[Rfam]
RNA: Molybdenum/Tungsten riboswitch aptamer (Moco RNA motif)
RNA sequence: AUGAUAUUAAUUCUCCGAGCUUAUGACUCCUAAUAGAUCAAUGGUCUGAUGGAGUGCAAGCCUGUAGGGUAUUGUUGGAAACAAUAAUGCCUCCCAUAGCGGAAAGGAGUGCGCAAAUCUAAUGC
Number, nucleotide and partner (000 for none) at each position: 001a000002u000003g119004a118005u000006a000007u000008u000009a000010a000011u111012u000013c109014u108015c107016c106017g000018a000019g061020c060021u059022u058023a000024u056025g000026a055027c054028u053029c052030c051031u000032a000033a000034u048035a047036g046037a045038u000039c000040a000041a000042u000043g000044g000045u037046c036047u035048g034049a000050u000051g030052g029053a028054g027055u026056g024057c000058a022059a021060g020061c019062c000063u000064g000065u000066a000067g092068g091069g090070u089071a088072u087073u086074g085075u084076u083077g082078g000079a000080a000081a000082c077083a076084a075085u074086a073087a072088u071089g070090c069091c068092u067093c102094c101095c000096a000097u000098a000099g000100c000101g094102g093103a000104a000105a000106g016107g015108a014109g013110u000111g011112c000113g000114c000115a000116a000117a000118u004119c003120u000121a000122a000123u000124g000125c000